[Rfam]
RNA sequence: AGAUGAGAGAAAAACCCCGUCCGCAGGGGACUGCGGGCGAUGCCCGGUCGGCGCUUCCCCGGCUCCGAUCUGGCCGUGCCCUCGCGCACACGACCGGGACCCGUGCGAUACGGGGCUCCGGGAAUCCUCACCGAUCGGA
Numbered sequence: 001a002g003a004u005g006a007g008a009g010a011a012a013a014a015c016c017c018c019g020u021c022c023g024c025a026g027g028g029g030a031c032u033g034c035g036g037g038c039g040a041u042g043c044c045c046g047g048u049c050g051g052c053g054c055u056u057c058c059c060c061g062g063c064u065c066c067g068a069u070c071u072g073g074c075c076g077u078g079c080c081c082u083c084g085c086g087c088a089c090a091c092g093a094c095c096g097g098g099a100c101c102c103g104u105g106c107g108a109u110a111c112g113g114g115g116c117u118c119c120g121g122g123a124a125u126c127c128u129c130a131c132c133g134a135u136c137g138g139a
Stems, first nucleotide, its partner, number of pairs: 004130004009126002018039009042074003046070002049067003053063002076089004094121005100115002131138002
RNA: Streptomyces RNA 5676
Organism: Streptomyces chattanoogensis